[Rfam]
Nucleotides: 079
Stems, first nucleotide, its partner, number of pairs: 001079005
Number, partner (000 for none) and nucleotide at each position: 001079a002078g003077c004076g005075a006000a007000a008000u009000g010000a011000g012000g013000a014000g015000g016000a017000a018000a019000a020000a021000u022000c023000a024000u025000c026000c027000g028000a029000a030000g031000u032000u033000u034000u035000u036000c037000u038000u039000g040000u041000g042000g043000a044000a045000a046000a047000c048000a049000c050000g051000u052000a053000c054000a055000u056000g057000g058000u059000c060000u061000u062000c063000a064000a065000a066000g067000u068000u069000c070000u071000c072000u073000g074000a075005u076004c077003g078002c079001u
Rfam assigns this 79-nucleotide RNA to the family "Small nucleolar RNA R160". It is annotated as a C/D-box small nucleolar RNA. On this family, see Chen et al., Nucleic Acids Res 2003: "The high diversity of snoRNAs in plants: identification and comparative study of 120 snoRNA genes from Oryza sativa". Rfam 15.1 lists 799 matches to the family in 221 species. Gene Ontology terms of the family: RNA processing and nucleolus. Rfam's curators put it in the seed alignment. snoR160 is a C/D box small nucleolar RNA, which acts as a methylation guide for 25S ribosomal RNA in plants. snoR160 has been alternatively named snoZ270 in rice.